[Rfam]
RNA sequence: UCGACUGUACUCUACAGGAUCAUGUUCGUAGUUAAUAUGUUCUGAUCUCUCAGUACUUUAGAUGGAAAACCAGCUGGUUGAUGACACGUUGUACGCCAUCCGUAAAGGGAGGCUGAGGUCGCCACAUCUUUUAGGUGUGGUAGACCCUCGAUGAUCUUGCGUUGCUAGUACUCGCCAUCUGCGCCCUUGGGCCGGGUGGUUGACGUCUAGCUUUCUUGCAAGGAUGGUCGUACCGUCUGACAGCC
Number, nucleotide and partner (000 for none) at each position: 001u000002c039003g038004a000005c000006u034007g000008u000009a032010c031011u030012c000013u000014a000015c000016a026017g025018g000019a023020u000021c000022a000023u019024g000025u017026u016027c000028g000029u000030a011031g010032u009033u000034a006035a000036u000037a000038u003039g002040u000041u000042c000043u000044g000045a000046u066047c000048u000049c000050u065051c064052a063053g000054u061055a000056c000057u000058u000059u000060a000061g054062a000063u052064g051065g050066a046067a000068a000069a000070c000071c000072a000073g244074c243075u242076g241077g000078u000079u000080g000081a000082u000083g000084a000085c000086a000087c000088g000089u000090u000091g233092u232093a231094c230095g229096c227097c226098a225099u224100c223101c222102g000103u000104a000105a158106a157107g156108g155109g000110a000111g000112g000113c000114u000115g000116a000117g146118g145119u144120c000121g000122c140123c000124a000125c000126a000127u000128c000129u000130u000131u000132u000133a000134g000135g000136u000137g000138u000139g000140g122141u000142a000143g000144a119145c118146c117147c000148u000149c000150g000151a000152u000153g000154a000155u108156c107157u106158u105159g000160c000161g000162u221163u220164g219165c218166u000167a216168g000169u000170a000171c000172u000173c000174g000175c000176c000177a000178u000179c000180u000181g000182c000183g000184c000185c000186c000187u000188u000189g000190g000191g000192c000193c000194g000195g000196g000197u000198g000199g000200u000201u000202g000203a000204c000205g000206u000207c000208u000209a000210g000211c000212u000213u000214u000215c000216u167217u000218g165219c164220a163221a162222g101223g100224a099225u098226g097227g096228u000229c095230g094231u093232a092233c091234c000235g000236u000237c000238u000239g000240a000241c076242a075243g074244c073245c000
Rfam assigns this 245-nucleotide sequence from Tieghemiomyces parasiticus to the family "ACEA small nucleolar RNA U3". Rfam describes the family as follows. Small nucleolar RNAs (snoRNAs) are involved in the processing and modification of rRNA in the nucleolus. The literature on the family includes a 1999 paper in Mol Cell Biol by Speckmann et al., "Nuclear retention elements of U3 small nucleolar RNA".